Rfam assigns this 85-nucleotide RNA from Striga asiatica to the family "Small nucleolar RNA R16".
NCBI's taxonomy places the organism under Eukaryota, Tracheophyta, Mesangiospermae, eudicotyledons, Striga.
On this family, see Galardi et al., Mol Cell Biol 2002: "Purified box C/D snoRNPs are able to reproduce site-specific 2'-O-methylation of target RNA in vitro".
It scores 71 bits against the family's covariance model.
It is annotated as a C/D-box small nucleolar RNA.

RNA sequence: UGUGGCAAACGACGAGUAUGAAUCUUAUCCUACACACUGAUUGUUGGUGAUUACUAAUAAACUCCGCUUAUUAUCCGAUGCCAUU
Number, nucleotide and partner (000 for none) at each position: 001u000002g000003u083004g082005g081006c080007a079008a000009a000010c000011g000012a000013c000014g000015a000016g000017u000018a000019u000020g000021a000022a000023u000024c000025u000026u000027a000028u000029c000030c000031u000032a000033c000034a000035c000036a000037c000038u000039g000040a000041u000042u000043g000044u000045u000046g000047g000048u000049g000050a000051u000052u000053a000054c000055u000056a000057a000058u000059a000060a000061a000062c000063u000064c000065c000066g000067c000068u000069u000070a000071u000072u000073a000074u000075c000076c000077g000078a000079u007080g006081c005082c004083a003084u000085u000